Record summary: Rfam assigns this 293-nucleotide sequence from Picrophilus oshimae to the family "Archaeal RNase P".

[Rfam]
RNA sequence: AAAAGCCCGAGGGCAACCGACGCCGCAAAGGUGAGGAAAGUCCCCCCUCCUGGAUGGAAUGCGUCCGUCGAAAGGCGGAGUCCCGAGAGGGAUGGUAAAGAGAAAAGAAAUAAACGGUCCGGGUAAAAGCAUGAUUCGAAAAGAUGACGUUCCCCGGCAGCCGAUGAGAACUCUCCCCGCAUGGAGCAAGUCUAAGAUGGGCCCGUGAACACCAUCCCGAGGCCCAGGUAAGACGCAUAGUCGAAUGUUGCCAGCCUUAAAGGUGAACAGAAGGGGGCUUACUCCGGGCAUUU
Numbered sequence: 001a002a003a004a005g006c007c008c009g010a011g012g013g014c015a016a017c018c019g020a021c022g023c024c025g026c027a028a029a030g031g032u033g034a035g036g037a038a039a040g041u042c043c044c045c046c047c048u049c050c051u052g053g054a055u056g057g058a059a060u061g062c063g064u065c066c067g068u069c070g071a072a073a074g075g076c077g078g079a080g081u082c083c084c085g086a087g088a089g090g091g092a093u094g095g096u097a098a099a100g101a102g103a104a105a106a107g108a109a110a111u112a113a114a115c116g117g118u119c120c121g122g123g124u125a126a127a128a129g130c131a132u133g134a135u136u137c138g139a140a141a142a143g144a145u146g147a148c149g150u151u152c153c154c155c156g157g158c159a160g161c162c163g164a165u166g167a168g169a170a171c172u173c174u175c176c177c178c179g180c181a182u183g184g185a186g187c188a189a190g191u192c193u194a195a196g197a198u199g200g201g202c203c204c205g206u207g208a209a210c211a212c213c214a215u216c217c218c219g220a221g222g223c224c225c226a227g228g229u230a231a232g233a234c235g236c237a238u239a240g241u242c243g244a245a246u247g248u249u250g251c252c253a254g255c256c257u258u259a260a261a262g263g264u265g266a267a268c269a270g271a272a273g274g275g276g277g278c279u280u281a282c283u284c285c286g287g288g289c290a291u292u293u
Base pairs, nucleotide, nucleotide: 001293002292003291005289006288007287008286009285010283011282012252013251014250015249016248017247021033022032023031024030038280039279040278042277043276044275045274046273047186048185049184050183052217053216054215055214056213057212059182060181061180062179063178064079065078066077067076068075080093081092082091083090084089094177095176099174100173101172102171115163116162117161119157120156121155122154123153125151136144137143190234191233192232193231199225200224201223202222203221
About this RNA:
Gene Ontology terms of the family: ribonuclease P activity, multimeric ribonuclease P complex and tRNA processing. The sequence is in the family's curated seed alignment. The family's RNA type in Rfam is ribozyme. About the family: Ribonuclease P (RNase P) is a ubiquitous endoribonuclease, found in archaea, bacteria and eukarya as well as chloroplasts and mitochondria.